[Rfam]
RNA sequence: AACUGCAUAUACCUCCGAGCCAGUGGACCUAAGGUGUUAAAGCUAUGGUUGCUGGCCUCCUGCCUUUUUUACAGGCAGCGACGGGGUAGGCGGGGAAACCUGCCUGCCUCCCGGAAUGGGAAAGGAGUUUUUCGUAAACUUCA
Numbered sequence: 001a002a003c004u005g006c007a008u009a010u011a012c013c014u015c016c017g018a019g020c021c022a023g024u025g026g027a028c029c030u031a032a033g034g035u036g037u038u039a040a041a042g043c044u045a046u047g048g049u050u051g052c053u054g055g056c057c058u059c060c061u062g063c064c065u066u067u068u069u070u071a072c073a074g075g076c077a078g079c080g081a082c083g084g085g086g087u088a089g090g091c092g093g094g095g096a097a098a099c100c101u102g103c104c105u106g107c108c109u110c111c112c113g114g115a116a117u118g119g120g121a122a123a124g125g126a127g128u129u130u131u132u133c134g135u136a137a138a139c140u141u142c143a
Stems, first nucleotide, its partner, number of pairs: 004136001006134001011129001013127004019056007027049003033044003060078005084109011110120002

About this RNA
The record is a 143-nucleotide RNA sequence from Neomoorella humiferrea, which matches "Molybdenum/Tungsten riboswitch aptamer (Moco RNA motif)" in Rfam. The base pairs follow the family's consensus structure, which is taken from published work. Its family is annotated with regulation of gene expression, tungstate binding and molybdenum ion binding in the Gene Ontology. Lineage of the source: Bacteria > Bacillati > Clostridia > Neomoorellaceae > Neomoorella.